[Rfam]
RNA sequence: AACGGAGCAAUAACCCCCUUCUUCUUCUAGCAAAAGGGCGUUAUUGUUCCCUCCC
Numbered sequence: 001a002a003c004g005g006a007g008c009a010a011u012a013a014c015c016c017c018c019u020u021c022u023u024c025u026u027c028u029a030g031c032a033a034a035a036g037g038g039c040g041u042u043a044u045u046g047u048u049c050c051c052u053c054c055c
Stems, first nucleotide, its partner, number of pairs: 002052001004050011019036002022033002
RNA: Plastid-psbA-3 3UTR RNA